[Rfam]
RNA: SAM/SAH riboswitch aptamer
RNA sequence: AGCCCAUCACAACGGCUUCCUGACGUGAUGGUGAAUGAUCAAUGGAGCG
Numbered sequence: 001a002g003c004c005c006a007u008c009a010c011a012a013c014g015g016c017u018u019c020c021u022g023a024c025g026u027g028a029u030g031g032u033g034a035a036u037g038a039u040c041a042a043u044g045g046a047g048c049g
Stems, first nucleotide, its partner, number of pairs: 004031007013022002015048003019045002